A member of the RNA family "Small nucleolar RNA SNORD14" from Microthlaspi erraticum, 123 nucleotides long. Taxonomically the source falls in Microthlaspi (Eukaryota, Viridiplantae, Streptophytina, Coluteocarpeae). Rfam's curators write: U14 small nucleolar RNA (U14 snoRNA) is required for early cleavages of eukaryotic precursor rRNAs. For this family Rfam cites "An essential domain in Saccharomyces cerevisiae U14 snoRNA is absent in vertebrates, but conserved in other yeasts" (Samarsky et al., Nucleic Acids Res, 1996). Gene Ontology terms of the family: RNA processing and nucleolus. The family's RNA type in Rfam is C/D-box small nucleolar RNA.
RNA sequence: UGUCGAUGAGGAUAAAUCUAAGGCUUGUUUCUCAAAACAUUCGCAGUUGCCGCCUAAGGCUUUCGCCUUUCGCCGGGAUUGAGAGCUUAUGAUGUUCUUAUCCUUCCUUGGAUGUCUGAGACU
Number, nucleotide and partner (000 for none) at each position: 001u000002g122003u121004c120005g000006a000007u000008g000009a000010g000011g000012a000013u000014a000015a000016a000017u000018c000019u000020a000021a000022g000023g000024c000025u000026u000027g000028u000029u000030u000031c000032u000033c000034a000035a000036a000037a000038c000039a000040u000041u000042c000043g000044c000045a000046g000047u000048u000049g000050c000051c000052g000053c000054c000055u000056a000057a000058g000059g086060c085061u084062u083063u082064c081065g000066c000067c000068u000069u000070u000071c000072g000073c000074c000075g000076g000077g000078a000079u000080u000081g064082a063083g062084a061085g060086c059087u000088u000089a000090u000091g000092a000093u000094g000095u000096u000097c000098u000099u000100a000101u000102c000103c000104u000105u000106c000107c000108u000109u000110g000111g000112a000113u000114g000115u000116c000117u000118g000119a000120g004121a003122c002123u000